SAM (S-adenosyl methionine) riboswitch aptamer: a 115-nucleotide RNA sequence from Nakamurella endophytica. About the family: SAM-IV is a mRNA element that regulates gene expression via direct sensing of S-adenosylmethionine (SAM or AdoMet). SAM-IV riboswitches share conserved nucleotide positions with the previously described SAM-I riboswitches sequence analysis and molecular recognition experiments suggest that SAM-I and SAM-IV riboswitches share similar ligand binding sites, but have different scaffolds. The family is grouped with related families in Rfam's "SAM clan". The source organism's lineage runs through Bacteria, Actinomycetota, Actinomycetes, Nakamurellaceae and Nakamurella. On this family, see Weinberg et al., RNA 2008: "The aptamer core of SAM-IV riboswitches mimics the ligand-binding site of SAM-I riboswitches".
RNA sequence: GGUUACGAGUGCCAGCGCGUAGCCCCGGCUUGCUGGCCGGCAACCCUCCUCCGCGGUGGGGUGCCCCGGGUGAGGACCUGGUCCGGCGCGCGGUGCGCCCGGGCAAGCGCGGACC
Numbered sequence: 001g002g003u004u005a006c007g008a009g010u011g012c013c014a015g016c017g018c019g020u021a022g023c024c025c026c027g028g029c030u031u032g033c034u035g036g037c038c039g040g041c042a043a044c045c046c047u048c049c050u051c052c053g054c055g056g057u058g059g060g061g062u063g064c065c066c067c068g069g070g071u072g073a074g075g076a077c078c079u080g081g082u083c084c085g086g087c088g089c090g091c092g093g094u095g096c097g098c099c100c101g102g103g104c105a106a107g108c109g110c111g112g113a114c115c
Stems, first nucleotide, its partner, number of pairs: 001078004009038001011037006021030002039065003044061003048056002081104006